[Rfam]
Nucleotides: 075
Base pairs, nucleotide, nucleotide: 014043015042017040020075021074022073023072024071025070026069027039028038029037048063049062050061051060052059053058
Number, partner (000 for none) and nucleotide at each position: 001000a002000a003000c004000u005000c006000a007000u008000u009000a010000c011000u012000g013000a014043g015042g016000g017040c018000a019000u020075a021074g022073c023072a024071g025070a026069a027039g028038u029037g030000c031000u032000u033000a034000u035000g036000g037029c038028a039027u040017g041000g042015c043014c044000u045000g046000u047000c048063a049062g050061a051060u052059u053058c054000c055000a056000a057000c058053g059052a060051a061050u062049c063048u064000u065000c066000a067000a068000a069026u070025u071024c072023u073022g074021c075020u
Shown here is a 75-nucleotide RNA from Crocodylus porosus, a member of the family "Mammalian CPEB3 ribozyme". A search with the family's covariance model found it, with a score of 40 bits. The mammalian CPEB3 ribozyme is a self cleaving RNA located in the second intron of the CPEB3 gene which belongs to a family of genes regulating messenger RNA polyadenylation. This ribozyme is highly conserved and found only in mammals. The CPEB3 ribozyme is structurally and biochemically related to the human hepatitis delta virus (HDV) ribozyme and the HDV ribozyme is proposed to have arisen from the human transcriptome.